This 58-nucleotide RNA sequence belongs to the Rfam family "Glutamine riboswitch aptamer (glnA leader)". It is one of the family's seed sequences. The base pairs follow the family's consensus structure, which is taken from published work. For this family Rfam cites "Bacterial aptamers that selectively bind glutamine" (Ames and Breaker, RNA Biol, 2011).
[Rfam]
RNA sequence: CUCGUUCAUUCUCAUAGACUGAGAACGGAAGUAGGUAAUGACACCGAAGGAACGCAUC
Numbered sequence: 001c002u003c004g005u006u007c008a009u010u011c012u013c014a015u016a017g018a019c020u021g022a023g024a025a026c027g028g029a030a031g032u033a034g035g036u037a038a039u040g041a042c043a044c045c046g047a048a049g050g051a052a053c054g055c056a057u058c
Stems, first nucleotide, its partner, number of pairs: 003054005009025005028055001034045003